L31-Actinobacteria ribosomal protein leader: a 42-nucleotide sequence from Kribbella caucasensis. It is annotated as a cis-regulatory leader. The family's consensus secondary structure is taken from published work. The match comes from Rfam's covariance-model search (44 bits). Lineage of the source: Bacteria > Bacillati > Propionibacteriales > Kribbellaceae > Kribbella.

RNA sequence: UCGGUUCCGGUUCACGUCUGCGCCCGCGGACGACCCGGGACA
Number, nucleotide and partner (000 for none) at each position: 001u000002c000003g000004g041005u040006u000007c038008c037009g036010g035011u000012u000013c000014a000015c032016g031017u030018c029019u028020g027021c026022g000023c000024c000025c000026g021027c020028g019029g018030a017031c016032g015033a000034c000035c010036c009037g008038g007039g000040a005041c004042a000